[Rfam]
RNA sequence: AUACGAAUAUGGCAAAGCCGUCGUGAGGCGGUGACGCAAAGCCAAGGGACUUGCAAAAGUCAGCCCGGUUGCAAUU
Numbered sequence: 001a002u003a004c005g006a007a008u009a010u011g012g013c014a015a016a017g018c019c020g021u022c023g024u025g026a027g028g029c030g031g032u033g034a035c036g037c038a039a040a041g042c043c044a045a046g047g048g049a050c051u052u053g054c055a056a057a058a059g060u061c062a063g064c065c066c067g068g069u070u071g072c073a074a075u076u
Stems, first nucleotide, its partner, number of pairs: 012037002017032006040070004046065002048061003
The family of this 76-nucleotide RNA sequence from Firmicutes bacterium CAG:552 is "c-di-GMP-I riboswitch aptamer". Rfam links the family to the GO term cyclic-di-GMP binding. A search with the family's covariance model found it, with a score of 59 bits. The family's consensus secondary structure is taken from published work.